RNA: Small Cajal body specific RNA 3
RNA sequence: CAUGGAACCUGCAGGAACUAACCAUGUGGACAAAUGAAAAAUGUAUUUGUCUACAAAUUGCAGUGACCAUACAUAAACAUGGAGGUCUCUGUCCGGCUUAGGACAGCUGACUGAGUUUGAUCGUCUCCCUCCAUACAGG
Numbered sequence: 001c002a003u004g005g006a007a008c009c010u011g012c013a014g015g016a017a018c019u020a021a022c023c024a025u026g027u028g029g030a031c032a033a034a035u036g037a038a039a040a041a042u043g044u045a046u047u048u049g050u051c052u053a054c055a056a057a058u059u060g061c062a063g064u065g066a067c068c069a070u071a072c073a074u075a076a077a078c079a080u081g082g083a084g085g086u087c088u089c090u091g092u093c094c095g096g097c098u099u100a101g102g103a104c105a106g107c108u109g110a111c112u113g114a115g116u117u118u119g120a121u122c123g124u125c126u127c128c129c130u131c132c133a134u135a136c137a138g139g
Stems, first nucleotide, its partner, number of pairs: 005068001009063004025055007036048003081132005089123001091121003095117007